[Rfam]
RNA sequence: CAAAAUUCUGGGGAUGGAGUCCCCCAACAACUGCCCGGGCCGGGCUGAUGACUCCUACCGCACA
Number, nucleotide and partner (000 for none) at each position: 001c000002a000003a000004a000005a000006u000007u000008c000009u000010g025011g024012g023013g022014a000015u000016g055017g054018a053019g052020u051021c050022c013023c012024c011025c010026a000027a000028c000029a000030a000031c000032u000033g045034c044035c043036c042037g000038g000039g000040c000041c000042g036043g035044g034045c033046u000047g000048a000049u000050g021051a020052c019053u018054c017055c016056u000057a000058c000059c000060g000061c000062a000063c000064a000
This 64-nucleotide RNA sequence from Desulfosarcina widdelii belongs to the Rfam family "Fluoride riboswitch aptamer (crcB RNA motif)". Gene Ontology terms of the family: response to fluoride and positive regulation of gene expression. NCBI's taxonomy places the organism under Bacteria, Pseudomonadati, Thermodesulfobacteriota, Desulfobacterales, Desulfosarcina. A search with the family's covariance model found it, with a score of 55 bits.